[Rfam]
RNA sequence: GAGACUAAAGUAUGGUAGAAAGAAAGAUUCAUAUUUUUCUUUCUACCAUACUAUCUAGUAUUUUCAUUGUACUGUACAAAGUUUACUGU
Numbered sequence: 001g002a003g004a005c006u007a008a009a010g011u012a013u014g015g016u017a018g019a020a021a022g023a024a025a026g027a028u029u030c031a032u033a034u035u036u037u038u039c040u041u042u043c044u045a046c047c048a049u050a051c052u053a054u055c056u057a058g059u060a061u062u063u064u065c066a067u068u069g070u071a072c073u074g075u076a077c078a079a080a081g082u083u084u085a086c087u088g089u
Stems, first nucleotide, its partner, number of pairs: 007054001009052020